Shown here is a 45-nucleotide sequence from Salinimonas iocasae, a member of the family "Guanidine-II riboswitch aptamer (mini-ykkC)". The family's consensus secondary structure is taken from published work. The organism belongs to Salinimonas, within Bacteria.

RNA sequence: UCGCAGGGACGACCCUGUGAUUAAUUAACUGACGGGGACGACCCC
Dot-bracket structure: ((((((((....)))))))).............((((....))))